The family of this 75-nucleotide RNA from Pipistrellus kuhlii is "mir-9223 microRNA precursor family".
Lineage of the source: Eukaryota > Vertebrata > Theria > Chiroptera > Pipistrellus.
The family has 9 seed sequences and 14,641 matches in Rfam 15.1.
RNA sequence: GGUGGUUCUUGGGUGACACACCCCGGAAUUGGGCUCUCUUCUUUCUGGUUCCAGGUGCAUCACCUGAGAACUGCA
Numbered sequence: 001g002g003u004g005g006u007u008c009u010u011g012g013g014u015g016a017c018a019c020a021c022c023c024c025g026g027a028a029u030u031g032g033g034c035u036c037u038c039u040u041c042u043u044u045c046u047g048g049u050u051c052c053a054g055g056u057g058c059a060u061c062a063c064c065u066g067a068g069a070a071c072u073g074c075a
Stems, first nucleotide, its partner, number of pairs: 002074002005071012019057004025052009